[Rfam]
RNA sequence: GCCCAAUUUCGCACGUGCCUGUGGUUGCGUGCCGGUUGGCGGGGAUCCGGACAAGAGGCCGGUUAACCGCCCAAAAAGGACCGGCAGCCGGAGGCGAACCGGCGAACCCCGCCAAACGGGGGACGCGACUUAAAGCAACGACGGACCGGGCUUUU
Numbered sequence: 001g002c003c004c005a006a007u008u009u010c011g012c013a014c015g016u017g018c019c020u021g022u023g024g025u026u027g028c029g030u031g032c033c034g035g036u037u038g039g040c041g042g043g044g045a046u047c048c049g050g051a052c053a054a055g056a057g058g059c060c061g062g063u064u065a066a067c068c069g070c071c072c073a074a075a076a077a078g079g080a081c082c083g084g085c086a087g088c089c090g091g092a093g094g095c096g097a098a099c100c101g102g103c104g105a106a107c108c109c110c111g112c113c114a115a116a117c118g119g120g121g122g123a124c125g126c127g128a129c130u131u132a133a134a135g136c137a138a139c140g141a142c143g144g145a146c147c148g149g150g151c152u153u154u155u
Stems, first nucleotide, its partner, number of pairs: 001151004009141003016137003023130008038071005047062004079099001082096002100122001107121005